[Rfam]
Nucleotides: 087
Stems, first nucleotide, its partner, number of pairs: 001087004
Number, partner (000 for none) and nucleotide at each position: 001087a002086a003085g004084c005000c006000a007000u008000g009000a010000g011000g012000a013000u014000a015000u016000u017000u018000g019000c020000g021000c022000c023000u024000c025000u026000g027000u028000g029000a030000u031000u032000g033000u034000a035000g036000g037000g038000u039000c040000u041000a042000u043000c044000g045000c046000a047000a048000c049000c050000g051000u052000c053000u054000g055000a056000u057000c058000u059000u060000c061000a062000a063000g064000a065000c066000g067000a068000c069000a070000a071000c072000a073000a074000g075000c076000g077000c078000a079000u080000c081000u082000g083000a084004g085003c086002u087001u